[Rfam]
RNA sequence: GAGGGUCGACCCCUCGCCAUCGGCUUGCAGGAGCAGGUGGCAAACCACCGUAAGCAGCAUUGGUCAAAAGCCCUUGUUGUGAGCGUUACGGAAAAGGUACCAGAAGGUAUCAGGU
Numbered sequence: 001g002a003g004g005g006u007c008g009a010c011c012c013c014u015c016g017c018c019a020u021c022g023g024c025u026u027g028c029a030g031g032a033g034c035a036g037g038u039g040g041c042a043a044a045c046c047a048c049c050g051u052a053a054g055c056a057g058c059a060u061u062g063g064u065c066a067a068a069a070g071c072c073c074u075u076g077u078u079g080u081g082a083g084c085g086u087u088a089c090g091g092a093a094a095a096g097g098u099a100c101c102a103g104a105a106g107g108u109a110u111c112a113g114g115u
Stems, first nucleotide, its partner, number of pairs: 001015005016041006023034004046114001048091006054080002057077003062072003096111006
Dot-bracket structure: (((((.....)))))((((((.((((....)))).))))))....(.((((((((.(((..(((.....)))..))).)).....))))))....((((((....))))))..).
Group II catalytic intron D1-D4-2: a 115-nucleotide sequence from Chlorobium phaeovibrioides. Gene Ontology term of the family: Group II intron splicing.